[Rfam]
RNA sequence: UCUUUCUAGUACUAAGGAGUAUAAGUGGCUUCCAACCACACGGUCUUGGUUAGAGUCCAAGGAAAGAU
Numbered sequence: 001u002c003u004u005u006c007u008a009g010u011a012c013u014a015a016g017g018a019g020u021a022u023a024a025g026u027g028g029c030u031u032c033c034a035a036c037c038a039c040a041c042g043g044u045c046u047u048g049g050u051u052a053g054a055g056u057c058c059a060a061g062g063a064a065a066g067a068u
Stems, first nucleotide, its partner, number of pairs: 001067006009022004025039004045061005
Dot-bracket structure: ((((((..((((......))))..((((.......)))).....(((((.......))))))))))).

The record is a 68-nucleotide RNA, which matches "tRNA" in Rfam. Rfam links the family to the GO term triplet codon-amino acid adaptor activity. Rfam classes the family as a transfer RNA. The base pairs follow the family's consensus structure, which is taken from published work. It is one of the family's seed sequences.